[Rfam]
RNA sequence: GAAAGGGCAUGAUACCGAACAUGCCUGGACGAAAGUCCCUAUUAAA
Numbered sequence: 001g002a003a004a005g006g007g008c009a010u011g012a013u014a015c016c017g018a019a020c021a022u023g024c025c026u027g028g029a030c031g032a033a034a035g036u037c038c039c040u041a042u043u044a045a046a
Stems, first nucleotide, its partner, number of pairs: 005026007027038004
The record is a 46-nucleotide sequence from Dorea sp. 5-2, which matches "S4-Clostridia ribosomal protein leader" in Rfam. The source organism's lineage runs through Bacteria, Bacillota, Clostridia, Lachnospirales and Dorea. The literature on the family includes a 2020 paper in BMC Microbiol by Eckert and Weinberg, "Discovery of 20 novel ribosomal leader candidates in bacteria and archaea". It is annotated as a cis-regulatory leader.